[Rfam]
RNA sequence: CAGAUCAGUGAAGAUGGCUAGUGGUAAAUUAAGCAUAUACAAUGAAUACUACAUGUCUGGAAUUCUAGGGUUCAA
Numbered sequence: 001c002a003g004a005u006c007a008g009u010g011a012a013g014a015u016g017g018c019u020a021g022u023g024g025u026a027a028a029u030u031a032a033g034c035a036u037a038u039a040c041a042a043u044g045a046a047u048a049c050u051a052c053a054u055g056u057c058u059g060g061a062a063u064u065c066u067a068g069g070g071u072u073c074a075a
Stems, first nucleotide, its partner, number of pairs: 003072004
Small nucleolar RNA SNORD113/SNORD114 family: a 75-nucleotide sequence from Canis lupus. The base pairs follow the family's consensus structure, which is taken from published work. The family is grouped with related families in Rfam's "SNORD74 clan". Rfam 15.1 lists 5,721 matches to the family in 142 species. The family's RNA type in Rfam is C/D-box small nucleolar RNA. From the family's description: The imprinted human domain at 14q32 contains two clusters of tandemly repeated small nucleolar RNAs named 14q(I) and 14q(II) snoRNAs.